[Rfam]
RNA sequence: AUGUGAGGACGACCUCACCGCUCCAAUCUUUAUAGGGGACGACCCCA
Numbered sequence: 001a002u003g004u005g006a007g008g009a010c011g012a013c014c015u016c017a018c019c020g021c022u023c024c025a026a027u028c029u030u031u032a033u034a035g036g037g038g039a040c041g042a043c044c045c046c047a
Stems, first nucleotide, its partner, number of pairs: 003018006035046004